[Rfam]
RNA sequence: GCACAGGGCUGGCCCAGCGGUUCCUUGAGUCUGGCUUCCCAACCGCCCGGACUGAUUAGUCCGGUGGUUCGAGACCCGCGCGCGCUCUCCAGUCCUUUA
Numbered sequence: 001g002c003a004c005a006g007g008g009c010u011g012g013c014c015c016a017g018c019g020g021u022u023c024c025u026u027g028a029g030u031c032u033g034g035c036u037u038c039c040c041a042a043c044c045g046c047c048c049g050g051a052c053u054g055a056u057u058a059g060u061c062c063g064g065u066g067g068u069u070c071g072a073g074a075c076c077c078g079c080g081c082g083c084g085c086u087c088u089c090c091a092g093u094c095c096u097u098u099a
Stems, first nucleotide, its partner, number of pairs: 003093002006090002012083002015080001017079004025073002027070002
RNA: Vault RNA
Organism: Cavia porcellus